Description
Rfam assigns this 78-nucleotide RNA sequence from Prochlorothrix hollandica to the family "Cyano-1 RNA". The base pairs follow the family's consensus structure, which is taken from published work. It scores 52 bits against the family's covariance model. Lineage of the source: Bacteria > Cyanophyceae > Prochlorotrichales > Prochlorotrichaceae > Prochlorothrix hollandica.

RNA sequence: AGGCGUGUGAGGAGUGAAAGUUCGAGCGAAAAUGCCUCUGGGGUCGAAACACGGAAAGACUCCCAGGGGCUUUUCUUA
Numbered sequence: 001a002g003g004c005g006u007g008u009g010a011g012g013a014g015u016g017a018a019a020g021u022u023c024g025a026g027c028g029a030a031a032a033u034g035c036c037u038c039u040g041g042g043g044u045c046g047a048a049a050c051a052c053g054g055a056a057a058g059a060c061u062c063c064c065a066g067g068g069g070c071u072u073u074u075c076u077u078a
Stems, first nucleotide, its partner, number of pairs: 030074003034070003040064003043060003